[Rfam]
RNA sequence: GUAAUUGCUUGACAACGAGAGAGAGCACGCUAGUCAGCAUUCAUGCGAGGAACAUGACUGUGUACAGGCGUGCUCUCUCUCGCUGUCAUACAAUC
Numbered sequence: 001g002u003a004a005u006u007g008c009u010u011g012a013c014a015a016c017g018a019g020a021g022a023g024a025g026c027a028c029g030c031u032a033g034u035c036a037g038c039a040u041u042c043a044u045g046c047g048a049g050g051a052a053c054a055u056g057a058c059u060g061u062g063u064a065c066a067g068g069c070g071u072g073c074u075c076u077c078u079c080u081c082g083c084u085g086u087c088a089u090a091c092a093a094u095c
Stems, first nucleotide, its partner, number of pairs: 010088005016082002020078002023075001025073007033065002